Small nucleolar RNA SNORA81: a 180-nucleotide RNA from Chrysochloris asiatica. A reference for the family is Gu et al. (2005), "A novel experimental approach for systematic identification of box H/ACA snoRNAs from eukaryotes", Nucleic Acids Res. Rfam links the family to the GO terms nucleolus and RNA processing. The source organism's lineage runs through Eukaryota, Bilateria, Chordata, Mammalia and Chrysochloris. Rfam classes the family as an H/ACA-box small nucleolar RNA.

[Rfam]
RNA sequence: UCCUUCUUGUAUAAGUACUGUGCUAAAAUUUCACAAACUAGGGCCAUGUCUUGGAUUUUAUAAUAAAGCUAGCAGAGUUAUACGCAAGAAGAAAAGUAAAUGCAUUAGAAUGGAAAAGACUGGGGUGGACCUCUUUUUUAAUGCCCAGCAUCCUUUGUCUCAAGAUUUGGUGCAAUAAGC
Numbered sequence: 001u002c003c004u005u006c007u008u009g010u011a012u013a014a015g016u017a018c019u020g021u022g023c024u025a026a027a028a029u030u031u032c033a034c035a036a037a038c039u040a041g042g043g044c045c046a047u048g049u050c051u052u053g054g055a056u057u058u059u060a061u062a063a064u065a066a067a068g069c070u071a072g073c074a075g076a077g078u079u080a081u082a083c084g085c086a087a088g089a090a091g092a093a094a095a096g097u098a099a100a101u102g103c104a105u106u107a108g109a110a111u112g113g114a115a116a117a118g119a120c121u122g123g124g125g126u127g128g129a130c131c132u133c134u135u136u137u138u139u140a141a142u143g144c145c146c147a148g149c150a151u152c153c154u155u156u157g158u159c160u161c162a163a164g165a166u167u168u169g170g171u172g173c174a175a176u177a178a179g180c
Base pairs, nucleotide, nucleotide: 018077019076021074022073023072024071025070029066030065035057038054039053040052041051042050043049044048101174102173103172104171105170106169107168108167109166122151124149126147127146128145